[Rfam]
RNA sequence: UAACCGUGGUGAUGAUGACUAUAUAAUAUUUUUCCCUGAAACAAACAAUGUGGGUAUUAAGUCACUAUCUCUUCUGAGCGGUCG
Number, nucleotide and partner (000 for none) at each position: 001u000002a000003a082004c081005c080006g079007u078008g000009g000010u000011g000012a000013u000014g000015a000016u000017g000018a000019c000020u000021a000022u000023a000024u000025a000026a000027u000028a000029u000030u000031u000032u000033u000034c000035c000036c000037u000038g000039a000040a000041a000042c000043a000044a000045a000046c000047a000048a000049u000050g000051u000052g000053g000054g000055u000056a000057u000058u000059a000060a000061g000062u000063c000064a000065c000066u000067a000068u000069c000070u000071c000072u000073u000074c000075u000076g000077a000078g007079c006080g005081g004082u003083c000084g000
Overview
Rfam assigns this 84-nucleotide RNA sequence from Merluccius polli to the family "Small nucleolar RNA SNORD11B". The family has 37 seed sequences and 733 matches in Rfam 15.1. A reference for the family is Yang et al. (2006), "snoSeeker: an advanced computational package for screening of guide and orphan snoRNA genes in the human genome", Nucleic Acids Res. NCBI's taxonomy places the organism under Eukaryota, Euteleosteomorpha, Neoteleostei, Acanthomorphata, Merluccius. The family's RNA type in Rfam is C/D-box small nucleolar RNA. Its Rfam clan is "SNORD11 clan".